[Rfam]
RNA sequence: UUUUACCCCUGCGGGUUACUCCACUUAAAUAAUACGUGAAGGGCUAAAAAAGGAGAGGAUCCGCCGCGGCUGGCGGUGCGGCAGUGUGGAGACCUGUCGUAAUGGGAUAAUUGCCUUUAUCCCGAGGCCGUUCCUUGCGGAGGCAGAACGGUCGCAGCCGAAAAAGAAUAUGGCA
Numbered sequence: 001u002u003u004u005a006c007c008c009c010u011g012c013g014g015g016u017u018a019c020u021c022c023a024c025u026u027a028a029a030u031a032a033u034a035c036g037u038g039a040a041g042g043g044c045u046a047a048a049a050a051a052g053g054a055g056a057g058g059a060u061c062c063g064c065c066g067c068g069g070c071u072g073g074c075g076g077u078g079c080g081g082c083a084g085u086g087u088g089g090a091g092a093c094c095u096g097u098c099g100u101a102a103u104g105g106g107a108u109a110a111u112u113g114c115c116u117u118u119a120u121c122c123c124g125a126g127g128c129c130g131u132u133c134c135u136u137g138c139g140g141a142g143g144c145a146g147a148a149c150g151g152u153c154g155c156a157g158c159c160g161a162a163a164a165a166g167a168a169u170a171u172g173g174c175a
Base pairs, nucleotide, nucleotide: 006042007041010038011037012036013035015033016032017031018030064076065075066074067073068159069158070157071156072155077101078100079099080098081097082096083095084094086093087092104123105122106121107120108119109118110117126153127152128151129150130149131148132147133146136145137144138143
Dot-bracket structure: .....((..((((.((((...........)))).))))..)).....................[[[[(((((]]]]((((((((.((....))))))))))..(((((((......)))))))..((((((((..(((....))))))))))).)))))................

A member of the RNA family "malK-I RNA", 175 nucleotides long. The base pairs follow the family's consensus structure, which is taken from published work. The sequence is in the family's curated seed alignment.